[Rfam]
RNA sequence: UAAGGCCAAUGAUGGAAUAUGAUGAUAUAUGCCUACAUUGUCUGAUCAUUAUAAUUUGAUUGACCAAAUAUGGACUGAGGCCUUU
Dot-bracket structure: .(.((((.......................................................................)))).).

The family of this 85-nucleotide sequence from Nicotiana tabacum is "Small nucleolar RNA SNORD34".
snoRNA U34 is found in intron 5 of the ribosomal protein L13a gene in humans.
By type it is a C/D-box small nucleolar RNA.
It scores 39 bits against the family's covariance model.
Lineage of the source: Eukaryota > eudicotyledons > lamiids > Nicotianoideae > Nicotiana.
Rfam 15.1 lists 1,319 matches to the family in 583 species.
A reference for the family is Galardi et al. (2002), "Purified box C/D snoRNPs are able to reproduce site-specific 2'-O-methylation of target RNA in vitro", Mol Cell Biol.